Shown here is a 113-nucleotide sequence from Nitratireductor sp. StC3, a member of the family "TPP riboswitch aptamer (THI element)".

[Rfam]
RNA sequence: GUCACACGACAGGGGUGCUCCGUAUCGCCGGGGCUGAGAUUGAAGGUGCGAAACCUUCUGACCCUCAAGCUGAUCUGGGUAAUGCCAGCGGAGCGAGACGAGCAUGUUUUCCG
Dot-bracket structure: ......((.(((((..(((((........))))).......((((((.....))))))...))))...(((...((((......))))...)))..).)).............
The organism belongs to Nitratireductor, within Bacteria.